[Rfam]
RNA sequence: GCCUUCCUAUUUAAGCAAUCUGCUAAUAUUGUGAAAUCCAUAUUUUAUGGCUUUUGCAAACAUGCUAGUAGAUUACACCUGGGAAGGAAAGAAAAUGCACUGCGUCGGAAAUGAGGCAAGGGUGGACCUCUUUCUUAAUGUCCAGUACCCUUUGCCCCGAGAUUCUGUGCAACAGUU
Numbered sequence: 001g002c003c004u005u006c007c008u009a010u011u012u013a014a015g016c017a018a019u020c021u022g023c024u025a026a027u028a029u030u031g032u033g034a035a036a037u038c039c040a041u042a043u044u045u046u047a048u049g050g051c052u053u054u055u056g057c058a059a060a061c062a063u064g065c066u067a068g069u070a071g072a073u074u075a076c077a078c079c080u081g082g083g084a085a086g087g088a089a090a091g092a093a094a095a096u097g098c099a100c101u102g103c104g105u106c107g108g109a110a111a112u113g114a115g116g117c118a119a120g121g122g123u124g125g126a127c128c129u130c131u132u133u134c135u136u137a138a139u140g141u142c143c144a145g146u147a148c149c150c151u152u153u154g155c156c157c158c159g160a161g162a163u164u165c166u167g168u169g170c171a172a173c174a175g176u177u
Base pairs, nucleotide, nucleotide: 018073019072021070022069023068024067025066028063029062034054035053038050039049040048041047042046096171097170098169099168100167102165104163121146123144124143125142126141
A member of the RNA family "Small nucleolar RNA SNORA81" from Callorhinchus milii, 177 nucleotides long. The literature on the family includes a 2005 paper in Nucleic Acids Res by Gu et al., "A novel experimental approach for systematic identification of box H/ACA snoRNAs from eukaryotes". The family's RNA type in Rfam is H/ACA-box small nucleolar RNA. Its family is annotated with nucleolus and RNA processing in the Gene Ontology.